Notes: Shown here is a 125-nucleotide RNA from Pelargonium quinquelobatum, a member of the family "Plastid-psbA-1 3UTR RNA".

[Rfam]
RNA sequence: UGUCGAAGCCCCAUCUACAAAUGGAUAAGAUUUGGGUUGGGUCUUAGUGUAUACGAGGUUUUUAAAGUAAAGGAGCAAUACUAACCCUCUUUCUUGGGAGAACAAGAAGUUGGGUAUUGCUCCUU
Numbered sequence: 001u002g003u004c005g006a007a008g009c010c011c012c013a014u015c016u017a018c019a020a021a022u023g024g025a026u027a028a029g030a031u032u033u034g035g036g037u038u039g040g041g042u043c044u045u046a047g048u049g050u051a052u053a054c055g056a057g058g059u060u061u062u063u064a065a066a067g068u069a070a071a072g073g074a075g076c077a078a079u080a081c082u083a084a085c086c087c088u089c090u091u092u093c094u095u096g097g098g099a100g101a102a103c104a105a106g107a108a109g110u111u112g113g114g115u116a117u118u119g120c121u122c123c124u125u
Stems, first nucleotide, its partner, number of pairs: 011024004070125012087112001091108005
The organism belongs to Pelargonium, within Eukaryota. It is annotated as a cis-regulatory element.